[Rfam]
RNA sequence: GUCAACUACCCAGCACGGAAGUGACUGGGCUUCUGACCUAAAACUUCAGUUGUAGUUGACUAGCCUAAGACUUUAGAGGUCUACGUUUUUUGAGUUAUGACACCAAGCGGCUGCUUAGCUAGUCCCUUGCUCUGUCGUUAACGGUUAAACAUCUUUAUUUGGGUUAAGGACGUGCCGUUAGCCGAACAAGCUCACUAAACAAAGGCGCGUGCUAACACUAC
Numbered sequence: 001g002u003c004a005a006c007u008a009c010c011c012a013g014c015a016c017g018g019a020a021g022u023g024a025c026u027g028g029g030c031u032u033c034u035g036a037c038c039u040a041a042a043a044c045u046u047c048a049g050u051u052g053u054a055g056u057u058g059a060c061u062a063g064c065c066u067a068a069g070a071c072u073u074u075a076g077a078g079g080u081c082u083a084c085g086u087u088u089u090u091u092g093a094g095u096u097a098u099g100a101c102a103c104c105a106a107g108c109g110g111c112u113g114c115u116u117a118g119c120u121a122g123u124c125c126c127u128u129g130c131u132c133u134g135u136c137g138u139u140a141a142c143g144g145u146u147a148a149a150c151a152u153c154u155u156u157a158u159u160u161g162g163g164u165u166a167a168g169g170a171c172g173u174g175c176c177g178u179u180a181g182c183c184g185a186a187c188a189a190g191c192u193c194a195c196u197a198a199a200c201a202a203a204g205g206c207g208c209g210u211g212c213u214a215a216c217a218c219u220a221c
Base pairs, nucleotide, nucleotide: 001060002059003058004057005056006055007054008053010029011028012026013025015022016021030049031048063206064205065204066203068082069081070080071079072078085200086199087198088197091194092193093192094191095190100135101134104129105128106127107126109125110124112122115215116214117213118212119211137182138181139180140179141178142177143176144175145174149173150172152170153169154168155167156166157165
HNH endonuclease-associated RNA and ORF (HEARO) RNA: a 221-nucleotide sequence from Phormidium nigroviride. The base pairs follow the family's consensus structure, which is taken from published work. The organism belongs to Phormidium nigroviride, within Bacteria.